This 152-nucleotide RNA sequence from Acer yangbiense belongs to the Rfam family "small nucleolar RNA snoR135". A reference for the family is Chen and Wu (2009), "Mining small RNA sequencing data: a new approach to identify small nucleolar RNAs in Arabidopsis", Nucleic Acids Res. The organism belongs to Acer, within Eukaryota. The base pairs follow the family's consensus structure, which was predicted with RNAalifold. Rfam classes the family as an H/ACA-box small nucleolar RNA.
RNA sequence: UAUGCAGGGAUUGUGUGUAUCGGCGUUGUGCGAUAAUAAAUGCACUUUGAAUCCGAAAGAGUUCCCUGCUAAAUCAAUUUCUGGGGAAGAUGGGCAGUUGUGAUUCAUUUUACUAUCCAUUGAAUCUUUCAACAAUCAUCUUCCUCACAUCU
Number, nucleotide and partner (000 for none) at each position: 001u000002a000003u000004g069005c068006a067007g066008g065009g064010a063011u000012u000013g000014u000015g045016u044017g043018u042019a041020u040021c000022g000023g000024c000025g000026u000027u000028g000029u000030g000031c000032g000033a000034u000035a000036a000037u000038a000039a000040a020041u019042g018043c017044a016045c015046u000047u000048u000049g000050a000051a000052u000053c000054c000055g000056a000057a000058a000059g000060a000061g000062u000063u010064c009065c008066c007067u006068g005069c004070u000071a000072a000073a000074u000075c000076a000077a000078u000079u000080u000081c000082u000083g146084g145085g144086g143087a142088a141089g140090a139091u138092g137093g136094g000095c000096a000097g133098u132099u131100g130101u000102g000103a000104u000105u000106c000107a000108u000109u000110u000111u000112a000113c000114u000115a000116u000117c000118c000119a000120u000121u000122g000123a000124a000125u000126c000127u000128u000129u000130c100131a099132a098133c097134a000135a000136u093137c092138a091139u090140c089141u088142u087143c086144c085145u084146c083147a000148c000149a000150u000151c000152u000